[Rfam]
RNA sequence: UGCAAUAUGAUGUAAUUGGUUAACAUUUUAGGGUCAUGACCUAAUUAUAUACGUUCAAAUCGUAUUAUUGCUA
Numbered sequence: 001u002g003c004a005a006u007a008u009g010a011u012g013u014a015a016u017u018g019g020u021u022a023a024c025a026u027u028u029u030a031g032g033g034u035c036a037u038g039a040c041c042u043a044a045u046u047a048u049a050u051a052c053g054u055u056c057a058a059a060u061c062g063u064a065u066u067a068u069u070g071c072u073a
Stems, first nucleotide, its partner, number of pairs: 002071006010026004028044005049065005
RNA: tRNA
Organism: Saccharomyces cerevisiae